[Rfam]
RNA sequence: CUCUCACCAACAGCCUGUGCCAGUUUUCCCGUCCACCUCUAGGGGUGUGUUCGGUUGAGGGCUGGCAGUUCGUUCGUGACCAUGGAGCCGUCUUGAUCAGUGGACGUCAAUAUCUGAACGACAGGCUGGAGAGCAAGUCGGCGCGUUGCUGGAAGCCUGAGUUCACCGCAAGGUUCGAGCUCGGUGGACGGUGCGUGCCAGGCAGACUGAUUCCUGUUCCCUUUUGCUAGACCGUCGGUCUAUGACGCUUGGGACAAACCCAGUUGGCUACAUAC
Numbered sequence: 001c002u003c004u005c006a007c008c009a010a011c012a013g014c015c016u017g018u019g020c021c022a023g024u025u026u027u028c029c030c031g032u033c034c035a036c037c038u039c040u041a042g043g044g045g046u047g048u049g050u051u052c053g054g055u056u057g058a059g060g061g062c063u064g065g066c067a068g069u070u071c072g073u074u075c076g077u078g079a080c081c082a083u084g085g086a087g088c089c090g091u092c093u094u095g096a097u098c099a100g101u102g103g104a105c106g107u108c109a110a111u112a113u114c115u116g117a118a119c120g121a122c123a124g125g126c127u128g129g130a131g132a133g134c135a136a137g138u139c140g141g142c143g144c145g146u147u148g149c150u151g152g153a154a155g156c157c158u159g160a161g162u163u164c165a166c167c168g169c170a171a172g173g174u175u176c177g178a179g180c181u182c183g184g185u186g187g188a189c190g191g192u193g194c195g196u197g198c199c200a201g202g203c204a205g206a207c208u209g210a211u212u213c214c215u216g217u218u219c220c221c222u223u224u225u226g227c228u229a230g231a232c233c234g235u236c237g238g239u240c241u242a243u244g245a246c247g248c249u250u251g252g253g254a255c256a257a258a259c260c261c262a263g264u265u266g267g268c269u270a271c272a273u274a275c
Stems, first nucleotide, its partner, number of pairs: 011128008019066005025060004029054003033049001034047005075120003080116001083109003087105001089103001143194006155185003159182006166173002202268002205265005218254004226248002230240004

Shown here is a 275-nucleotide RNA sequence from Epicoccum nigrum, a member of the family "A. fumigatus sRNA Afu_309". Pairs were carried over by alignment from the consensus structure, which was predicted with WAR. A reference for the family is Jochl et al. (2008), "Small ncRNA transcriptome analysis from Aspergillus fumigatus suggests a novel mechanism for regulation of protein synthesis", Nucleic Acids Res. Rfam 15.1 lists 663 matches to the family in 646 species.